RNA: MIR6152 microRNA precursor family
Organism: Nicotiana sylvestris
RNA sequence: UAUAUUUGACUGUAUUCGACUGUAUUCACGGCGUAAAACAGGGGAUUACACUGUUUUUAAAAGGAAAGUGAAUCAAUUAACAUAAUAGACUCCU
Number, nucleotide and partner (000 for none) at each position: 001u000002a091003u000004a000005u000006u000007u088008g000009a086010c000011u084012g083013u082014a000015u080016u079017c000018g078019a077020c000021u075022g074023u000024a073025u072026u071027c070028a069029c068030g000031g000032c063033g000034u061035a057036a056037a055038a054039c053040a052041g051042g000043g000044g000045a000046u000047u000048a000049c000050a000051c041052u040053g039054u038055u037056u036057u035058u000059a000060a000061a034062a000063g032064g000065a000066a000067a000068g029069u028070g027071a026072a025073u024074c022075a021076a000077u019078u018079a016080a015081c000082a013083u012084a011085a000086u009087a000088g007089a000090c000091u002092c000093c000094u000